[Rfam]
RNA sequence: CUUUAACCGCUCUUCGCCACAUAGCUGCCAACGGCAAUUGAUGUGAUUUGAGGAGCAAACACCCUGAGCAACCCCGAAAGGAGAGAGCUAUGUCUUUUGAAUUACCGGCAUUACCUUAU
Numbered sequence: 001c002u003u004u005a006a007c008c009g010c011u012c013u014u015c016g017c018c019a020c021a022u023a024g025c026u027g028c029c030a031a032c033g034g035c036a037a038u039u040g041a042u043g044u045g046a047u048u049u050g051a052g053g054a055g056c057a058a059a060c061a062c063c064c065u066g067a068g069c070a071a072c073c074c075c076g077a078a079a080g081g082a083g084a085g086a087g088c089u090a091u092g093u094c095u096u097u098u099g100a101a102u103u104a105c106c107g108g109c110a111u112u113a114c115c116u117u118a119u
Base pairs, nucleotide, nucleotide: 025085026084029081035076040072042066043065045063047059048058049057050056087106089104090103093100094099
This 119-nucleotide RNA sequence from Yersinia intermedia belongs to the Rfam family "SodB 5' UTR thermometer". By type it is an RNA thermoregulator. The source organism's lineage runs through Bacteria, Pseudomonadati, Gammaproteobacteria, Yersiniaceae and Yersinia intermedia. Rfam links the family to the GO terms regulation of translation and response to temperature stimulus. Involved in protection against oxidative stress. Rfam's curators put it in the seed alignment. For this family Rfam cites "Temperature-responsive in vitro RNA structurome of Yersinia pseudotuberculosis" (Righetti et al., Proc Natl Acad Sci U S A, 2016).